[Rfam]
RNA sequence: GAAUGAGGUGAUGAUUUGAACUUUGUGUUCCCUAUUGGUUUGAUUUGCCGCAAUGAUGGCAUCUAUGUAUUAGCUGUAUCUGAUCAUUC
Numbered sequence: 001g002a003a004u005g006a007g008g009u010g011a012u013g014a015u016u017u018g019a020a021c022u023u024u025g026u027g028u029u030c031c032c033u034a035u036u037g038g039u040u041u042g043a044u045u046u047g048c049c050g051c052a053a054u055g056a057u058g059g060c061a062u063c064u065a066u067g068u069a070u071u072a073g074c075u076g077u078a079u080c081u082g083a084u085c086a087u088u089c
Stems, first nucleotide, its partner, number of pairs: 002088004042063001046061004
RNA: Small nucleolar RNA Z102/R77
Organism: Pyrus ussuriensis x Pyrus communis